RNA sequence: AGGAUUGAAAAUGUAUUCUCACCUGAAUGUGUUCUGCAGAGAUUUAGAAAAAGCUGGCAAUAGUAAAGCCAUGUUACGAGCCUUAAAGACAUUGACAUUGAAGUCAUUAAGGUCCCUGAAAAUGGCUAUAAGA
Numbered sequence: 001a002g003g004a005u006u007g008a009a010a011a012u013g014u015a016u017u018c019u020c021a022c023c024u025g026a027a028u029g030u031g032u033u034c035u036g037c038a039g040a041g042a043u044u045u046a047g048a049a050a051a052a053g054c055u056g057g058c059a060a061u062a063g064u065a066a067a068g069c070c071a072u073g074u075u076a077c078g079a080g081c082c083u084u085a086a087a088g089a090c091a092u093u094g095a096c097a098u099u100g101a102a103g104u105c106a107u108u109a110a111g112g113u114c115c116c117u118g119a120a121a122a123u124g125g126c127u128a129u130a131a132g133a
Stems, first nucleotide, its partner, number of pairs: 001055002014040001016038001018036001068126004080113007088105003

Shown here is a 133-nucleotide RNA from Molossus molossus, a member of the family "Small nucleolar RNA SNORA33". A search with the family's covariance model found it, with a score of 102 bits. The base pairs follow the family's consensus structure, which was predicted with PFOLD. Its family is annotated with nucleolus and RNA processing in the Gene Ontology. The family has 28 seed sequences and 1,176 matches in Rfam 15.1. The family's RNA type in Rfam is H/ACA-box small nucleolar RNA. Lineage of the source: Eukaryota > Bilateria > Eutheria > Boreoeutheria > Molossus.